[Rfam]
RNA sequence: AAAACCAGCGUUGAUGGACGCUGGUGAGGGACUUCAAUAAUGCCGUUCUACCCUGCAGGGAAGUAAAACGGUGACGCGUUGCGUCUGAGGACCGGGGGCGACGGUAAAAAGGUUAACGCCCUGCAACCAAUGUGGACGGAUUCUAUGCACGGUUUUAUAGAUCGUCAACACUAUAGAAUGCAAUAACUAUAACUAUUUGU
Number, nucleotide and partner (000 for none) at each position: 001a000002a000003a000004a000005c024006c023007a022008g021009c020010g019011u018012u000013g000014a000015u000016g000017g000018a011019c010020g009021c008022u007023g006024g005025u000026g000027a000028g000029g000030g000031a000032c000033u000034u000035c000036a000037a000038u000039a000040a000041u000042g000043c104044c103045g102046u101047u100048c000049u066050a000051c000052c000053c000054u000055g000056c000057a000058g000059g000060g000061a000062a000063g000064u000065a000066a049067a000068a000069c000070g000071g000072u000073g085074a084075c083076g082077c081078g000079u000080u000081g077082c076083g075084u074085c073086u000087g000088a000089g000090g000091a000092c000093c000094g000095g000096g000097g000098g000099c000100g047101a046102c045103g044104g043105u000106a000107a000108a000109a000110a000111g000112g000113u000114u000115a000116a000117c000118g000119c000120c000121c000122u000123g000124c000125a000126a000127c000128c000129a000130a000131u170132g169133u168134g000135g000136a165137c164138g163139g162140a000141u000142u161143c160144u159145a158146u000147g000148c000149a000150c000151g000152g000153u000154u000155u000156u000157a000158u145159a144160g143161a142162u139163c138164g137165u136166c000167a000168a133169c132170a131171c000172u000173a000174u000175a000176g000177a000178a000179u000180g000181c000182a000183a000184u000185a000186a000187c000188u000189a000190u000191a000192a000193c000194u000195a000196u000197u000198u000199g000200u000
Shown here is a 200-nucleotide sequence from Paraburkholderia atlantica, a member of the family "Burkholderia sRNA Bp1_Cand738_SIPHT". The source organism's lineage runs through Bacteria, Pseudomonadati, Betaproteobacteria, Burkholderiaceae and Paraburkholderia.